c-di-AMP riboswitch aptamer (ydaO/yuaA leader): a 149-nucleotide RNA from Peribacillus deserti. Pairs were carried over by alignment from the consensus structure. The organism belongs to Peribacillus, within Bacteria.

RNA sequence: UCAUAAUAUACGCUUAGUCCAUUGAGCGGGGGAACCGAUUAUCGUAAUGUUUUACAUUACUAGGGGUGAAUCCUUUUUUAAAAAAGGAAGGGCAAUGUUCUCAUGUCCGAAUCCGACAGCUAACCUCGUAUGCAGCUAGAAGGGAACAU
Numbered sequence: 001u002c003a004u005a006a007u008a009u010a011c012g013c014u015u016a017g018u019c020c021a022u023u024g025a026g027c028g029g030g031g032g033a034a035c036c037g038a039u040u041a042u043c044g045u046a047a048u049g050u051u052u053u054a055c056a057u058u059a060c061u062a063g064g065g066g067u068g069a070a071u072c073c074u075u076u077u078u079u080a081a082a083a084a085a086g087g088a089a090g091g092g093c094a095a096u097g098u099u100c101u102c103a104u105g106u107c108c109g110a111a112u113c114c115g116a117c118a119g120c121u122a123a124c125c126u127c128g129u130a131u132g133c134a135g136c137u138a139g140a141a142g143g144g145a146a147c148a149u
Base pairs, nucleotide, nucleotide: 012133013132018025019024026129027128028127029126030125031124036063064114065113066112072087073086074085075084090108091107092106093105
Rfam's curators write: This family represents a conserved RNA structure found upstream of the ydaO and yuaA genes in Bacillus subtilis and related genes in other bacteria. The ydaO/yuaA element is thought to act as a genetic 'off' switch for the ydaO and yuaA genes in its native state. It is believed that the element may be triggered during osmotic shock leading to activation of ydaO, a predicted amino acid transporter gene, and members of the yuaA-yubG operon which code for KtrA and KtrB K+ transporters.